[Rfam]
RNA sequence: UAAAAUAACAAAGCUGUUUUAAAGACAGCAGGUGCUUUUGCAUAAAGGGUUUCGCCCGCCUGCCGAGAAACGCGAAAAAACAUUUAAUUGUAUUUUUUUGCCUCUUUCUCGCAAGGGAAAGAGGCUUUUUUAUGUGCUUA
Numbered sequence: 001u002a003a004a005a006u007a008a009c010a011a012a013g014c015u016g017u018u019u020u021a022a023a024g025a026c027a028g029c030a031g032g033u034g035c036u037u038u039u040g041c042a043u044a045a046a047g048g049g050u051u052u053c054g055c056c057c058g059c060c061u062g063c064c065g066a067g068a069a070a071c072g073c074g075a076a077a078a079a080a081c082a083u084u085u086a087a088u089u090g091u092a093u094u095u096u097u098u099u100g101c102c103u104c105u106u107u108c109u110c111g112c113a114a115g116g117g118a119a120a121g122a123g124g125c126u127u128u129u130u131u132a133u134g135u136g137c138u139u140a
Stems, first nucleotide, its partner, number of pairs: 028063006034041002100125010
Rfam assigns this 140-nucleotide RNA from Ruthenibacterium lactatiformans to the family "Ribosomal protein L10 leader". This family is a putative r-protein leader autoregulatory structure found in B. subtilis and other low-GC Gram-positive bacteria. It is located in the 5' untranslated regions of mRNAs encoding ribosomal proteins L10 and L12 (rplJ-rplL). The organism belongs to Ruthenibacterium, within Bacteria. It scores 59 bits against the family's covariance model. Rfam classes the family as a cis-regulatory leader.